[Rfam]
RNA sequence: GUUAUCAGAUGAUGAGCAAAUACUGUAACAAUAUGAUGGAUCAAAAUCCUCAUGAUUCUUAGUAUUUAAGUCUCUAAUGAUC
Dot-bracket structure: (...(((..............................((((....)))..)..........................))).)
The family of this 82-nucleotide RNA from Raphanus sativus is "Small nucleolar RNA Z199". By type it is a C/D-box small nucleolar RNA. snoZ199 is a C/D box small nucleolar RNA, which acts as a methylation guide RNA for sites on 18S and 25S rRNA. Rice snoZ199 is reported to be homologous to Arabidopsis snoR13. Gene Ontology terms of the family: nucleolus and RNA processing. The family has 17 seed sequences and 953 matches in Rfam 15.1. A reference for the family is Chen et al. (2003), "The high diversity of snoRNAs in plants: identification and comparative study of 120 snoRNA genes from Oryza sativa", Nucleic Acids Res. Taxonomically the source falls in Raphanus (Eukaryota, Streptophyta, Brassicaceae, Brassiceae). The base pairs follow the family's consensus structure, which was predicted with PFOLD.